[Rfam]
RNA sequence: GCCCCCUUGGUGGAACUGGUAGACACAAGGGACUUAAAAUCCCUCGGCCCUAGGCCGUGCCGGUUCGAGCCCGGCAGGGGGCA
Numbered sequence: 001g002c003c004c005c006c007u008u009g010g011u012g013g014a015a016c017u018g019g020u021a022g023a024c025a026c027a028a029g030g031g032a033c034u035u036a037a038a039a040u041c042c043c044u045c046g047g048c049c050c051u052a053g054g055c056c057g058u059g060c061c062g063g064u065u066c067g068a069g070c071c072c073g074g075c076a077g078g079g080g081g082c083a
Base pairs, nucleotide, nucleotide: 001082002081003080004079005078006077007076010026011025012024028044029043030042031041032040059075060074061073062072063071
The record is an 83-nucleotide sequence from Zhengella mangrovi, which matches "tRNA" in Rfam. For this family Rfam cites "The tertiary structure of tRNA and the development of the genetic code" (Hou, Trends Biochem Sci, 1993). The organism belongs to Zhengella, within Bacteria.